The family of this 379-nucleotide RNA from Vagococcus salmoninarum is "Bacterial RNase P class B". Ribonuclease P (RNase P) is a ubiquitous endoribonuclease, found in archaea, bacteria and eukarya as well as chloroplasts and mitochondria. Its best characterised activity is the generation of mature 5'-ends of tRNAs by cleaving the 5'-leader elements of precursor-tRNAs. Cellular RNase Ps are ribonucleoproteins. RNA from bacterial RNase Ps retains its catalytic activity in the absence of the protein subunit, i.e. it is a ribozyme. A reference for the family is Frank and Pace (1998), "Ribonuclease P: unity and diversity in a tRNA processing ribozyme", Annu Rev Biochem.
RNA sequence: GUUUUCGGAUAAUUGCGGUUUAGUAUUUAUACUAGGCUGAGGAAAGUCCAUGCUCGCACAAGCUGCGAUGCUUGUAGUGUUCGUGCUUAGUGAAACCAUAAGCUAAGGUAUUCUAUUUUAUAGGAUAACGGCAGCCAAAACAGCUAAGGUCUUCGGACUAUGCUGGAGUAAGCUUGAAAGUGCCACAGUGACGAAGCAAUUUUAGAAAUGAAAUUGGUGGAACGCGGUAAACCCCUCGAGCGAGCAACCCAAACUAAGGUCGGGGCACUUUUUUCAAGGAAUAAUGAACGAAGAAAAGAGACAGAUUAAUCUGUAGACAGAUGAUUAUCGUUGAUGUUUUUUACCUGAGAAACAUCAAUACAGAACAUGGCUUAUAGAA
Number, nucleotide and partner (000 for none) at each position: 001g000002u000003u000004u379005u378006c377007g375008g329009a328010u327011a326012a325013u324014u323015g000016c039017g038018g037019u036020u035021u034022a033023g032024u000025a000026u000027u000028u000029a000030u000031a000032c023033u022034a021035g020036g019037c018038u017039g016040a000041g000042g000043a000044a373045a372046g371047u000048c370049c369050a368051u367052g366053c244054u243055c242056g241057c240058a075059c074060a073061a072062g071063c070064u000065g000066c000067g000068a000069u000070g063071c062072u061073u060074g059075u058076a000077g000078u000079g000080u000081u239082c238083g237084u000085g235086c107087u106088u105089a104090g103091u102092g000093a000094a000095a000096c000097c000098a000099u000100a000101a000102g091103c090104u089105a088106a087107g086108g129109u127110a126111u125112u124113c123114u122115a000116u000117u000118u000119u000120a000121u000122a114123g113124g112125a111126u110127a109128a000129c108130g234131g233132c000133a174134g173135c172136c000137a000138a000139a000140a000141c165142a164143g163144c162145u000146a000147a000148g159149g158150u157151c000152u000153u000154c000155g000156g000157a150158c149159u148160a000161u000162g144163c143164u142165g141166g000167a000168g000169u000170a000171a000172g135173c134174u133175u000176g000177a000178a000179a000180g232181u231182g228183c227184c226185a000186c000187a000188g000189u000190g000191a000192c000193g000194a000195a000196g000197c216198a215199a214200u213201u212202u211203u210204a209205g000206a000207a000208a000209u204210g203211a202212a201213a200214u199215u198216g197217g000218u000219g000220g000221a000222a000223c000224g000225c000226g184227g183228u182229a000230a000231a181232c180233c131234c130235c085236u000237c083238g082239a081240g057241c056242g055243a054244g053245c000246a000247a000248c264249c263250c262251a000252a000253a000254c000255u000256a000257a000258g000259g000260u000261c000262g250263g249264g248265g000266c000267a000268c300269u299270u298271u297272u296273u295274u294275c000276a000277a000278g000279g000280a000281a000282u000283a000284a000285u000286g000287a000288a000289c000290g000291a000292a000293g000294a274295a273296a272297a271298g270299a269300g268301a314302c313303a312304g311305a310306u000307u000308a000309a000310u305311c304312u303313g302314u301315a000316g000317a000318c000319a000320g000321a000322u000323g014324a013325u012326u011327a010328u009329c008330g000331u358332u357333g356334a355335u354336g353337u352338u351339u350340u349341u348342u000343a000344c000345c000346u000347g000348a341349g340350a339351a338352a337353c336354a335355u334356c333357a332358a331359u000360a000361c000362a000363g000364a000365a000366c052367a051368u050369g049370g048371c046372u045373u044374a000375u007376a000377g006378a005379a004
It is annotated as a ribozyme.